Rfam assigns this 85-nucleotide sequence from Brassica carinata to the family "Small nucleolar RNA Z122". The literature on the family includes a 2003 paper in Nucleic Acids Res by Chen et al., "The high diversity of snoRNAs in plants: identification and comparative study of 120 snoRNA genes from Oryza sativa". Lineage of the source: Eukaryota > Mesangiospermae > malvids > Brassicales > Brassica. It scores 69 bits against the family's covariance model.

[Rfam]
RNA sequence: ACUGGGAAAUGAUGACAAAGAUAUCGAUGUGUCAUAGGCACAUGCAAUGCUGAACUACAUAUUUGCACGUCAGUCUGAUCCCAUU
Numbered sequence: 001a002c003u004g005g006g007a008a009a010u011g012a013u014g015a016c017a018a019a020g021a022u023a024u025c026g027a028u029g030u031g032u033c034a035u036a037g038g039c040a041c042a043u044g045c046a047a048u049g050c051u052g053a054a055c056u057a058c059a060u061a062u063u064u065g066c067a068c069g070u071c072a073g074u075c076u077g078a079u080c081c082c083a084u085u
Stems, first nucleotide, its partner, number of pairs: 001085001003083005
Rfam 15.1 lists 822 matches to the family in 247 species.